[Rfam]
RNA sequence: ACCCAUACUCUAGGCCACAGAAGAAGCACUCAUGGCGCAGCUCAAUCAGAUCGCAACAGAUCUGUGAAUUCUGCU
Numbered sequence: 001a002c003c004c005a006u007a008c009u010c011u012a013g014g015c016c017a018c019a020g021a022a023g024a025a026g027c028a029c030u031c032a033u034g035g036c037g038c039a040g041c042u043c044a045a046u047c048a049g050a051u052c053g054c055a056a057c058a059g060a061u062c063u064g065u066g067a068a069u070u071c072u073g074c075u
Stems, first nucleotide, its partner, number of pairs: 011044001013042003019075002022072004026038002047064006
RNA: Mammalian CPEB3 ribozyme